Rfam assigns this 171-nucleotide RNA sequence from Liquorilactobacillus ghanensis to the family "M-box riboswitch aptamer (ykoK leader)". A reference for the family is Ramesh et al. (2011), "Insights into metalloregulation by M-box riboswitch RNAs via structural analysis of manganese-bound complexes", J Mol Biol. A search with the family's covariance model found it, with a score of 153 bits. About the family: M-box riboswitch, also know as ykoK leader is described as a metaloregulatory RNA that sense divalent metals and function as a genetic control element of genes related to divalent metal transport in bacteria. It was first reported upstream of the B.subtilis ykoK gene and genes with related functions in other bacteria.
RNA sequence: AAGUAGAUUUGUUAGGUGAGGCUCCUAUAUAAACAUAGGCUGCUGCCAAAAAAACGUCGAGAGACACCAAUUGGUAGAACAGGGAUUGUCGAUACAAGGCUUUCUUUAAAGCAGCUAAAAGAUAUUCUUUUUACGUUAUAUAGUGCCAAAACUCAACGAAUAAAUCGUUAA
Numbered sequence: 001a002a003g004u005a006g007a008u009u010u011g012u013u014a015g016g017u018g019a020g021g022c023u024c025c026u027a028u029a030u031a032a033a034c035a036u037a038g039g040c041u042g043c044u045g046c047c048a049a050a051a052a053a054a055c056g057u058c059g060a061g062a063g064a065c066a067c068c069a070a071u072u073g074g075u076a077g078a079a080c081a082g083g084g085a086u087u088g089u090c091g092a093u094a095c096a097a098g099g100c101u102u103u104c105u106u107u108a109a110a111g112c113a114g115c116u117a118a119a120a121g122a123u124a125u126u127c128u129u130u131u132u133a134c135g136u137u138a139u140a141u142a143g144u145g146c147c148a149a150a151a152c153u154c155a156a157c158g159a160a161u162a163a164a165u166c167g168u169u170a171a
Stems, first nucleotide, its partner, number of pairs: 006166005011157002013097001015153003020147003025143008039115005045075005056065003082106004088100003117131003